[Rfam]
RNA: Bacterial RNase P class A
Organism: Phragmitibacter flavus
RNA sequence: GGUCGGCCGGGGGUGGUCGCUUUGGGAGGUCGCGAGAUCAUCCGAAGAGGAAAGUCCGGACACCACAGGGCAGCAUGUCGCGUGAAAACGCGAGGGCUGAAGUCGCAAGCCUUCGGUCACGGAAAGUGUCACAGAAAACAUACCACCAGCGUGAGCAAUCAUGCUGGCCAGGGUGAAAAGGCGAGGUAAGAGCUCACCGCUCCAACUGUAAAGAAGGAGGCAGGACAAACCCCACGCGGUGCAAGACAUAACAGAGGAAACGGCCCGCCCUGGCCGCAACUCCGCGCAAGCGGAGGGAUGACCUCGGGUAUUAGUCGCAUCCUGCCUCGGCAGGAGAGCCGGUCGCAAGGCCGGUCACAGAGAAAUGACUGCCAUCUGGCAACAGAGACAGAAUCCGGCUUACACCGGUCGACCCCGU
Numbered sequence: 001g002g003u004c005g006g007c008c009g010g011g012g013g014u015g016g017u018c019g020c021u022u023u024g025g026g027a028g029g030u031c032g033c034g035a036g037a038u039c040a041u042c043c044g045a046a047g048a049g050g051a052a053a054g055u056c057c058g059g060a061c062a063c064c065a066c067a068g069g070g071c072a073g074c075a076u077g078u079c080g081c082g083u084g085a086a087a088a089c090g091c092g093a094g095g096g097c098u099g100a101a102g103u104c105g106c107a108a109g110c111c112u113u114c115g116g117u118c119a120c121g122g123a124a125a126g127u128g129u130c131a132c133a134g135a136a137a138a139c140a141u142a143c144c145a146c147c148a149g150c151g152u153g154a155g156c157a158a159u160c161a162u163g164c165u166g167g168c169c170a171g172g173g174u175g176a177a178a179a180g181g182c183g184a185g186g187u188a189a190g191a192g193c194u195c196a197c198c199g200c201u202c203c204a205a206c207u208g209u210a211a212a213g214a215a216g217g218a219g220g221c222a223g224g225a226c227a228a229a230c231c232c233c234a235c236g237c238g239g240u241g242c243a244a245g246a247c248a249u250a251a252c253a254g255a256g257g258a259a260a261c262g263g264c265c266c267g268c269c270c271u272g273g274c275c276g277c278a279a280c281u282c283c284g285c286g287c288a289a290g291c292g293g294a295g296g297g298a299u300g301a302c303c304u305c306g307g308g309u310a311u312u313a314g315u316c317g318c319a320u321c322c323u324g325c326c327u328c329g330g331c332a333g334g335a336g337a338g339c340c341g342g343u344c345g346c347a348a349g350g351c352c353g354g355u356c357a358c359a360g361a362g363a364a365a366u367g368a369c370u371g372c373c374a375u376c377u378g379g380c381a382a383c384a385g386a387g388a389c390a391g392a393a394u395c396c397g398g399c400u401u402a403c404a405c406c407g408g409u410c411g412a413c414c415c416c417g418u
Stems, first nucleotide, its partner, number of pairs: 001414010011403001012373007020047007028039003052401003056398005061241004073237002076234002078093005094120001095118008121232002126230002128226003143172002146167008180198002183195003199221001200219004206213002255323004336356001338355007